[Rfam]
RNA sequence: AGCAAAAUGAGGAAUCUUUUUAAUGGCUGAAAUUGGUGUGGAGUUUCCGUAUCAUUUAAUGGUCUUCAAAGUUCUCUGAUUGCU
Numbered sequence: 001a002g003c004a005a006a007a008u009g010a011g012g013a014a015u016c017u018u019u020u021u022a023a024u025g026g027c028u029g030a031a032a033u034u035g036g037u038g039u040g041g042a043g044u045u046u047c048c049g050u051a052u053c054a055u056u057u058a059a060u061g062g063u064c065u066u067c068a069a070a071g072u073u074c075u076c077u078g079a080u081u082g083c084u
Base pairs, nucleotide, nucleotide: 001084002083003082004081005080
RNA: Small nucleolar RNA R160
Organism: Hibiscus syriacus